Annotation: A member of the RNA family "PyrR binding site" from Bacillus subtilis, 119 nucleotides long. The family's consensus secondary structure is taken from published work. It is annotated as a cis-regulatory element.
[Rfam]
RNA sequence: AUCACCUUUUUAAGGGCAAUCCAGAGAGGUUGCAAAGAGGUGCACAACAAAGGCCCAAAAAGUAUUCGGCAGGUCUUUGUAUGCCUCUUUGCGUAAAAAAGCAAAGAGGUUUUUUUAUA
Numbered sequence: 001a002u003c004a005c006c007u008u009u010u011u012a013a014g015g016g017c018a019a020u021c022c023a024g025a026g027a028g029g030u031u032g033c034a035a036a037g038a039g040g041u042g043c044a045c046a047a048c049a050a051a052g053g054c055c056c057a058a059a060a061a062g063u064a065u066u067c068g069g070c071a072g073g074u075c076u077u078u079g080u081a082u083g084c085c086u087c088u089u090u091g092c093g094u095a096a097a098a099a100a101g102c103a104a105a106g107a108g109g110u111u112u113u114u115u116u117a118u119a
Stems, first nucleotide, its partner, number of pairs: 003042007016033006046077002049074001053070003057066002079114001081112001083110010